[Rfam]
RNA sequence: CUCUAUAUCAUAGCCAGAAGGCGAACACCCCAAGGGGUGUCGUUCAGUGCAUGAUUUAAAGGGGCUCAUUCCCUUGCCGAAAGGCAAAAAAUUGAAUUACUGCAAAGGCAGCUAGUAGCAAUUGCGAAAGAUGUCACGUGCAG
Numbered sequence: 001c002u003c004u005a006u007a008u009c010a011u012a013g014c015c016a017g018a019a020g021g022c023g024a025a026c027a028c029c030c031c032a033a034g035g036g037g038u039g040u041c042g043u044u045c046a047g048u049g050c051a052u053g054a055u056u057u058a059a060a061g062g063g064g065c066u067c068a069u070u071c072c073c074u075u076g077c078c079g080a081a082a083g084g085c086a087a088a089a090a091a092u093u094g095a096a097u098u099a100c101u102g103c104a105a106a107g108g109c110a111g112c113u114a115g116u117a118g119c120a121a122u123u124g125c126g127a128a129a130g131a132u133g134u135c136a137c138g139u140g141c142a143g
Base pairs, nucleotide, nucleotide: 007055008054009053013050014049020044022042023041024040026039027038028037029036030035075086076085077084078083100143101142102141103140104139107135108134109133110132112130118125119124
A member of the RNA family "RT-14 RNA" from Caloramator australicus, 143 nucleotides long.
By type it is a small RNA.
The organism belongs to Caloramator australicus, within Bacteria.
The family's consensus secondary structure is taken from published work.